[Rfam]
RNA sequence: UGUUUGCUGUGAAGAUUCCUACAAGGACGGUAUCUGAGUAAGGAGCCUCUGUAAAGAGUACUCACAUGAUUACGCCCAAAAAAACUGAUCUGAGAUUCUGAGCAAACA
Numbered sequence: 001u002g003u004u005u006g007c008u009g010u011g012a013a014g015a016u017u018c019c020u021a022c023a024a025g026g027a028c029g030g031u032a033u034c035u036g037a038g039u040a041a042g043g044a045g046c047c048u049c050u051g052u053a054a055a056g057a058g059u060a061c062u063c064a065c066a067u068g069a070u071u072a073c074g075c076c077c078a079a080a081a082a083a084a085c086u087g088a089u090c091u092g093a094g095a096u097u098c099u100g101a102g103c104a105a106a107c108a
Base pairs, nucleotide, nucleotide: 001108002107003106004105005104006103007102038065039064043063
Small nucleolar RNA Z118/Z121/Z120: a 108-nucleotide sequence from Zizania palustris. On this family, see Chen et al., Nucleic Acids Res 2003: "The high diversity of snoRNAs in plants: identification and comparative study of 120 snoRNA genes from Oryza sativa". By type it is a C/D-box small nucleolar RNA. Pairs were carried over by alignment from the consensus structure, which was predicted with PFOLD. A search with the family's covariance model found it, with a score of 92 bits.